[Rfam]
RNA sequence: GCCGGUCCUCGGUAGUGGCUGCCGGGGGCCUUCCCCGUCGGCUUCGAUCGAUGACCGGC
Numbered sequence: 001g002c003c004g005g006u007c008c009u010c011g012g013u014a015g016u017g018g019c020u021g022c023c024g025g026g027g028g029c030c031u032u033c034c035c036c037g038u039c040g041g042c043u044u045c046g047a048u049c050g051a052u053g054a055c056c057g058g059c
Stems, first nucleotide, its partner, number of pairs: 001059007009051005017043005023037006
Background:
Shown here is a 59-nucleotide RNA sequence from Saccharomonospora glauca, a member of the family "Actino-pnp RNA". The organism belongs to Saccharomonospora glauca, within Bacteria. It scores 69 bits against the family's covariance model. Rfam classes the family as a cis-regulatory element.